[Rfam]
RNA: SAM/SAH riboswitch aptamer
Organism: Silicimonas algicola
Nucleotides: 049
Base pairs, nucleotide, nucleotide: 004031005030006029007028008027009026010025013022014021015048016047017046019045020044
Number, partner (000 for none) and nucleotide at each position: 001000g002000c003000a004031c005030c006029g007028u008027c009026a010025c011000a012000a013022c014021g015048g016047c017046u018000u019045c020044c021014u022013g023000g024000c025010g026009u027008g028007a029006c030005g031004g032000c033000g034000g035000a036000g037000c038000a039000c040000c041000a042000g043000c044020g045019g046017a047016g048015c049000a